[Rfam]
RNA sequence: UGGGGGAGGCCGGAUCCUGGGCUGUGUCCCUGAACCUAGUGCUCCCGGGCCUGCGUCAUUGGAUUCGUGCUCCUGGUGGCGCAGCCCCCU
Number, nucleotide and partner (000 for none) at each position: 001u000002g089003g088004g087005g086006g085007a000008g000009g082010c081011c079012g000013g077014a000015u000016c076017c075018u000019g073020g072021g071022c000023u069024g068025u067026g066027u063028c062029c061030c000031u000032g056033a000034a000035c053036c000037u000038a000039g051040u000041g050042c049043u048044c000045c000046c000047g000048g043049g042050c041051c039052u000053g035054c000055g000056u032057c000058a000059u000060u000061g029062g028063a027064u000065u000066c026067g025068u024069g023070c000071u021072c020073c019074u000075g017076g016077u013078g000079g011080c000081g010082c009083a000084g000085c006086c005087c004088c003089c002090u000

Shown here is a 90-nucleotide RNA from Vulpes vulpes, a member of the family "mir-8799 microRNA precursor family". Its Rfam clan is "mir-8791 microRNA precursor clan". The source organism's lineage runs through Eukaryota, Opisthokonta, Chordata, Canidae and Vulpes. The family has 7 seed sequences and 20,638 matches in Rfam 15.1. A search with the family's covariance model found it, with a score of 68 bits.